Background: Group II catalytic intron D1-D4-3: a 175-nucleotide RNA from Weizmannia acidilactici. About the family: Group II introns are found in rRNA, tRNA and mRNA of organelles in fungi, plants and protists, and also in mRNA in bacteria.
[Rfam]
RNA sequence: UCCGUAGUGAUGCGGAAUCUGAAGGAAGCGGGCGGCAAACCUCCGAUUCUUGAGGAACACGAACCUCAUAUAAGGCUAGGUAUUACUGGAUGAGCUUACCAGACAAAGCAAAGUCCAUACUGCCAAAGGUGAUAUAGAGUAAAUGAGGCAGAUAGGUGGAGGGAAAUAGUCUUAC
Numbered sequence: 001u002c003c004g005u006a007g008u009g010a011u012g013c014g015g016a017a018u019c020u021g022a023a024g025g026a027a028g029c030g031g032g033c034g035g036c037a038a039a040c041c042u043c044c045g046a047u048u049c050u051u052g053a054g055g056a057a058c059a060c061g062a063a064c065c066u067c068a069u070a071u072a073a074g075g076c077u078a079g080g081u082a083u084u085a086c087u088g089g090a091u092g093a094g095c096u097u098a099c100c101a102g103a104c105a106a107a108g109c110a111a112a113g114u115c116c117a118u119a120c121u122g123c124c125a126a127a128g129g130u131g132a133u134a135u136a137g138a139g140u141a142a143a144u145g146a147g148g149c150a151g152a153u154a155g156g157u158g159g160a161g162g163g164a165a166a167u168a169g170u171c172u173u174a175c
Stems, first nucleotide, its partner, number of pairs: 001016006030175001032173001035170002040162006046153002050151003064148006075140003081134006088116004094109004